[Rfam]
The record is a 102-nucleotide sequence, which matches "GP20-a RNA" in Rfam.
The family's consensus secondary structure is taken from published work.

RNA sequence: AUAACUUGACCUGACAAGAUAUAAAAACAGGAACCGUCCGACGCAGACACAGACUGCGGCUUUAAAAAUAAAAGUGCUUUAAAGACGGAGAAAGGACAAGAG
Numbered sequence: 001a002u003a004a005c006u007u008g009a010c011c012u013g014a015c016a017a018g019a020u021a022u023a024a025a026a027a028c029a030g031g032a033a034c035c036g037u038c039c040g041a042c043g044c045a046g047a048c049a050c051a052g053a054c055u056g057c058g059g060c061u062u063u064a065a066a067a068a069u070a071a072a073a074g075u076g077c078u079u080u081a082a083a084g085a086c087g088g089a090g091a092a093a094g095g096a097c098a099a100g101a102g
Stems, first nucleotide, its partner, number of pairs: 005018004010031004034088005042058004